[Rfam]
RNA: Small nucleolar RNA SNORA65
Organism: Erinaceus europaeus
RNA sequence: AUUGCCUCUUCACCUGAUAAGUUCUGAUGGCUGGUGCAAUCCAGUGGUGAUGUGAGAUUAAACUCCAGUUUAGGAAACAGGGUUCUUCAUGUGAAUGAUUCUGUGCCGAAAACAUGGGGCAACU
Numbered sequence: 001a002u003u004g005c006c007u008c009u010u011c012a013c014c015u016g017a018u019a020a021g022u023u024c025u026g027a028u029g030g031c032u033g034g035u036g037c038a039a040u041c042c043a044g045u046g047g048u049g050a051u052g053u054g055a056g057a058u059u060a061a062a063c064u065c066c067a068g069u070u071u072a073g074g075a076a077a078c079a080g081g082g083u084u085c086u087u088c089a090u091g092u093g094a095a096u097g098a099u100u101c102u103g104u105g106c107c108g109a110a111a112a113c114a115u116g117g118g119g120c121a122a123c124u
Stems, first nucleotide, its partner, number of pairs: 005047002008044002017035002020032002022029001063118003067115001068113004073107002078103006086095003